[Rfam]
RNA sequence: AAAGGACUUCGUUAGGUGAGGUUCCUGGUUGGAUAAAAGCCGCUGCCCAGAAACGUCCAAAGACGCCAAUGGGUUAGCAGAUAUUACCGGGUUAAGGUUUAUCUAAUGCGGCUGGGUGUAAAAACCUUACGUCAUCCAGUGCCAAAGCUCAACAAGUGGAGUAUUAU
Numbered sequence: 001a002a003a004g005g006a007c008u009u010c011g012u013u014a015g016g017u018g019a020g021g022u023u024c025c026u027g028g029u030u031g032g033a034u035a036a037a038a039g040c041c042g043c044u045g046c047c048c049a050g051a052a053a054c055g056u057c058c059a060a061a062g063a064c065g066c067c068a069a070u071g072g073g074u075u076a077g078c079a080g081a082u083a084u085u086a087c088c089g090g091g092u093u094a095a096g097g098u099u100u101a102u103c104u105a106a107u108g109c110g111g112c113u114g115g116g117u118g119u120a121a122a123a124a125c126c127u128u129a130c131g132u133c134a135u136c137c138a139g140u141g142c143c144a145a146a147g148c149u150c151a152a153c154a155a156g157u158g159g160a161g162u163a164u165u166a167u
Base pairs, nucleotide, nucleotide: 006162007161008160009159010158011153012152013095015149016148017147020143021142022141025139026138027137028136030134031133032132039112040111041110042109043108045074046073047072048071049070054065055064056063057062080103081102082101083100086098087097088096114127115126116125
RNA: M-box riboswitch aptamer (ykoK leader)